RNA sequence: AGUCUCUGGAGUCGGCGCAGUUGACCGAGCAAUUCUUUUACUAAAGAAUUCCGUGCGCCGACUCGCUUUAUGAGUGUUUCUCAAUUUUUGGAGUCCCGAUCUUUGGAAAGGGAU
Numbered sequence: 001a002g003u004c005u006c007u008g009g010a011g012u013c014g015g016c017g018c019a020g021u022u023g024a025c026c027g028a029g030c031a032a033u034u035c036u037u038u039u040a041c042u043a044a045a046g047a048a049u050u051c052c053g054u055g056c057g058c059c060g061a062c063u064c065g066c067u068u069u070a071u072g073a074g075u076g077u078u079u080c081u082c083a084a085u086u087u088u089u090g091g092a093g094u095c096c097c098g099a100u101c102u103u104u105g106g107a108a109a110g111g112g113a114u
Stems, first nucleotide, its partner, number of pairs: 004074003009064011031050008092114001094113004

A member of the RNA family "U5 spliceosomal RNA" from Steinernema carpocapsae, 114 nucleotides long. The family's consensus secondary structure is taken from published work. U5 RNA is a component of both types of known spliceosome. Rfam links the family to the GO terms spliceosomal tri-snRNP complex assembly and U5 snRNP. It is annotated as a spliceosomal small nuclear RNA. The organism belongs to Steinernema, within Eukaryota.